Shown here is an 81-nucleotide RNA sequence from Coregonus sp. 'balchen', a member of the family "mir-130 microRNA precursor family". For this family Rfam cites "Identification of tissue-specific microRNAs from mouse" (Lagos-Quintana et al., Curr Biol, 2002). A search with the family's covariance model found it, with a score of 41 bits.
RNA sequence: AAUGGCACCCUAUUCCCUACAUAGUGCACUACUUUUGACUAGUCAAAAGUAGUGCACUCUAUAGGGAAUAGGGUGCCAUUU
Numbered sequence: 001a002a003u004g005g006c007a008c009c010c011u012a013u014u015c016c017c018u019a020c021a022u023a024g025u026g027c028a029c030u031a032c033u034u035u036u037g038a039c040u041a042g043u044c045a046a047a048a049g050u051a052g053u054g055c056a057c058u059c060u061a062u063a064g065g066g067a068a069u070a071g072g073g074u075g076c077c078a079u080u081u
Stems, first nucleotide, its partner, number of pairs: 001081002005076006012069008023058008